RNA sequence: AGUUUUGCAGGUUUGCAUCCAGCUGUAUGGUACUCUGCUGUGCAAAUCCAUGCAAAACUGA
Dot-bracket structure: ((((((((((((((((((..(((.............)))))))))).)).)))))))))..
Rfam assigns this 61-nucleotide sequence from Ornithorhynchus anatinus to the family "mir-19 microRNA precursor family". Its Rfam clan is "mir-19 clan". Rfam links the family to the GO terms miRNA-mediated post-transcriptional gene silencing and RISC complex. Rfam 15.1 lists 2,337 matches to the family in 651 species. The organism belongs to Ornithorhynchus, within Eukaryota.